The family of this 107-nucleotide RNA sequence from Cercocebus atys is "Y RNA".
Rfam 15.1 lists 26,986 matches to the family in 650 species.
Taxonomically the source falls in Cercocebus (Eukaryota, Tetrapoda, Amniota, Catarrhini).
It scores 52 bits against the family's covariance model.
Nucleotides: 107
Stems, first nucleotide, its partner, number of pairs: 001103008010095001014091002016086004022081001038068002041065002
Number, partner (000 for none) and nucleotide at each position: 001103g002102g003101c004100u005099g006098g007097u008096c009000c010095a011000a012000g013000u014091g015090a016086a017085g018084u019083g020000c021000a022081g023000u024000g025000a026000u027000g028000u029000u030000u031000a032000a033000a034000a035000c036000u037000c038068a039067u040000u041065g042064a043000u044000c045000a046000c047000a048000a049000u050000c051000a052000g053000u054000u055000a056000c057000a058000g059000u060000u061000u062000u063000c064042u065041u066000u067039g068038u069000u070000u071000u072000u073000c074000c075000u076000c077000c078000a079000u080000u081022c082000a083019c084018a085017c086016u087000g088000u089000a090015u091014u092000a093000c094000a095010u096008g097007a098006c099005u100004a101003g102002c103001c104000u105000u106000c107000a